[Rfam]
The family of this 114-nucleotide RNA sequence from Streptococcus agalactiae is "PreQ1-II (pre queuosine) riboswitch aptamer".
The family's consensus secondary structure is taken from published work.
Gene Ontology term of the family: queuosine biosynthetic process.
The sequence is in the family's curated seed alignment.
Rfam's curators write: preQ1-II riboswitch was first reported for Weinberg et al. 2007 it was recognised in Streptococcaceae and Lactococcus families in 5' untranslated regions of genes of a membrane protein classified as COG4708 or DUF988. Meyers et al. 2008 confirm that preQ1-II recognise the queuosine (Q) precursor pre-queuosine 1 (preQ1).
RNA sequence: UGUGAUAUACUUAGUAAGUUGUUUUACACAACCCUUGAUGCUUAGUUCCCUUUCAUCAAGCAUAUUACAAACGUUAGAAGUGUUAACUGUCUAAACGUUAAAGGAGAAAUUAUG
Number, nucleotide and partner (000 for none) at each position: 001u000002g000003u000004g000005a000006u000007a000008u000009a000010c000011u000012u000013a000014g000015u000016a000017a000018g032019u031020u030021g029022u028023u000024u000025u000026a000027c000028a022029c021030a020031a019032c018033c000034c060035u059036u058037g057038a056039u055040g054041c000042u000043u000044a000045g000046u000047u106048c000049c104050c103051u102052u101053u000054c040055a039056u038057c037058a036059a035060g034061c000062a000063u000064a000065u000066u000067a000068c000069a000070a099071a098072c097073g096074u095075u000076a000077g000078a000079a000080g000081u000082g000083u000084u000085a000086a000087c000088u000089g000090u000091c000092u000093a000094a000095a074096c073097g072098u071099u070100a000101a052102a051103g050104g049105a000106g047107a000108a000109a000110u000111u000112a000113u000114g000